[Rfam]
RNA sequence: GGUGAUAAACGCGCGUGCAAUAAGCGGAUCGGACCCGGGGGCGGUACCCGGCGGCUCCACCAAACUCCCACAUUGGCGGGACAGCGGGGCCGAAACAGGAUCGACGGACGUGUAAAGACGUUAGCUUUCACUCGGCAGGACGCCACCGUUACCGGCUCAAGCAUGAUAGUUGCCAAUGACAACCGUGCUCCGGUCGCGCUCGCUGCGUAA
Numbered sequence: 001g002g003u004g005a006u007a008a009a010c011g012c013g014c015g016u017g018c019a020a021u022a023a024g025c026g027g028a029u030c031g032g033a034c035c036c037g038g039g040g041g042c043g044g045u046a047c048c049c050g051g052c053g054g055c056u057c058c059a060c061c062a063a064a065c066u067c068c069c070a071c072a073u074u075g076g077c078g079g080g081a082c083a084g085c086g087g088g089g090c091c092g093a094a095a096c097a098g099g100a101u102c103g104a105c106g107g108a109c110g111u112g113u114a115a116a117g118a119c120g121u122u123a124g125c126u127u128u129c130a131c132u133c134g135g136c137a138g139g140a141c142g143c144c145a146c147c148g149u150u151a152c153c154g155g156c157u158c159a160a161g162c163a164u165g166a167u168a169g170u171u172g173c174c175a176a177u178g179a180c181a182a183c184c185g186u187g188c189u190c191c192g193g194u195c196g197c198g199c200u201c202g203c204u205g206c207g208u209a210a
Stems, first nucleotide, its partner, number of pairs: 001132005013121004025110002029107003035051005052092007133148003
The record is a 210-nucleotide sequence from Halovulum dunhuangense, which matches "permuted transfer-messenger RNA" in Rfam. The organism belongs to Halovulum, within Bacteria. Rfam classes the family as a non-coding RNA gene. Pairs were carried over by alignment from the consensus structure, which is taken from published work. The match comes from Rfam's covariance-model search (147 bits).